[Rfam]
Nucleotides: 057
Base pairs, nucleotide, nucleotide: 009028010027011026012025013024
Number, partner (000 for none) and nucleotide at each position: 001000a002000g003000a004000g005000a006000a007000u008000u009028c010027a011026c012025u013024u014000a015000u016000u017000u018000a019000c020000u021000g022000c023000c024013a025012a026011g027010u028009g029000a030000u031000a032000g033000c034000u035000a036000a037000a038000u039000g040000u041000u042000g043000c044000c045000u046000g047000g048000a049000g050000a051000a052000g053000g054000g055000u056000a057000a
Overview: This 57-nucleotide RNA from Ptilorrhoa leucosticta belongs to the Rfam family "algC RNA". The organism belongs to Ptilorrhoa, within Eukaryota. The base pairs follow the family's consensus structure, which is taken from published work. It is annotated as a cis-regulatory element.